[Rfam]
RNA: Proteo-phage-1 RNA
RNA sequence: CCAUAGCCAGGAUGGGCCUUCGGGCGGGCCUGGACGCGGUAUCGCCGGUAGUCACGCGUUACGAAAGAACACCGGCAGCU
Numbered sequence: 001c002c003a004u005a006g007c008c009a010g011g012a013u014g015g016g017c018c019u020u021c022g023g024g025c026g027g028g029c030c031u032g033g034a035c036g037c038g039g040u041a042u043c044g045c046c047g048g049u050a051g052u053c054a055c056g057c058g059u060u061a062c063g064a065a066a067g068a069a070c071a072c073c074g075g076c077a078g079c080u
Stems, first nucleotide, its partner, number of pairs: 001015004007033005016025003035058004040054001044076005